[Rfam]
RNA sequence: UAAAUAAAAGGGCAAACUUAUCGAAAGAUAAGGGCGCAAAGCCAAGGGUCUUCAUCAAUUGAUUGAUAUGACAGCCGGUUGCAGAG
Number, nucleotide and partner (000 for none) at each position: 001u000002a000003a000004a000005u000006a000007a000008a000009a000010g000011g000012g037013c036014a000015a000016a000017c032018u031019u030020a029021u028022c027023g000024a000025a000026a000027g022028a021029u020030a019031a018032g017033g000034g000035c000036g013037c012038a000039a000040a080041g079042c078043c077044a000045a000046g076047g075048g072049u071050c070051u000052u000053c000054a000055u066056c065057a064058a063059u000060u000061g000062a000063u058064u057065g056066a055067u000068a000069u000070g050071a049072c048073a000074g000075c047076c046077g043078g042079u041080u040081g000082c000083a000084g000085a000086g000